[Rfam]
RNA sequence: UGUUAAAAAAAUGCAUCCAUUUGUACUAUUAAAAACUGACAUUAUUGAUGUAAUAACUAGAUAGUUACACGUGACGUACUAGGUUACCUCAUUCUAGCAUAUACUGACAAUUUUCUAACAGUAAAAAUGGAUAGAAUUUUUAACA
Numbered sequence: 001u002g003u004u005a006a007a008a009a010a011a012u013g014c015a016u017c018c019a020u021u022u023g024u025a026c027u028a029u030u031a032a033a034a035a036c037u038g039a040c041a042u043u044a045u046u047g048a049u050g051u052a053a054u055a056a057c058u059a060g061a062u063a064g065u066u067a068c069a070c071g072u073g074a075c076g077u078a079c080u081a082g083g084u085u086a087c088c089u090c091a092u093u094c095u096a097g098c099a100u101a102u103a104c105u106g107a108c109a110a111u112u113u114u115c116u117a118a119c120a121g122u123a124a125a126a127a128u129g130g131a132u133a134g135a136a137u138u139u140u141u142a143a144c145a
Stems, first nucleotide, its partner, number of pairs: 002144008012135001015132003019128004024123004029118003033114002
MIR7502 microRNA precursor family: a 145-nucleotide sequence from Gossypium davidsonii. Pairs were carried over by alignment from the consensus structure, which was predicted with RNAalifold.